[Rfam]
RNA sequence: AGGGGAUGUCUCCUUACCUUUAUCAAUGGAGGCACUCGACUAUGCUGUGGGUUUAUCACCUUAGAUACAAUGUUAUCGUUGGUAUAGUGUGAGGAUGGGUUGAAUGCCCU
Numbered sequence: 001a002g003g004g005g006a007u008g009u010c011u012c013c014u015u016a017c018c019u020u021u022a023u024c025a026a027u028g029g030a031g032g033c034a035c036u037c038g039a040c041u042a043u044g045c046u047g048u049g050g051g052u053u054u055a056u057c058a059c060c061u062u063a064g065a066u067a068c069a070a071u072g073u074u075a076u077c078g079u080u081g082g083u084a085u086a087g088u089g090u091g092a093g094g095a096u097g098g099g100u101u102g103a104a105u106g107c108c109c110u
Base pairs, nucleotide, nucleotide: 001019002018003017007034008033009032010031011030012029013028035093036092037091038090039088040087041086042085043084044083045082046081049061050060051059052058064077065076066075067074097109098108099107100106

epsC RNA: a 110-nucleotide RNA sequence from Alkalihalobacillus trypoxylicola.
Lineage of the source: Bacteria > Bacillati > Bacillota > Bacillaceae > Alkalihalobacillus.
The match comes from Rfam's covariance-model search (100 bits).
It is annotated as a cis-regulatory element.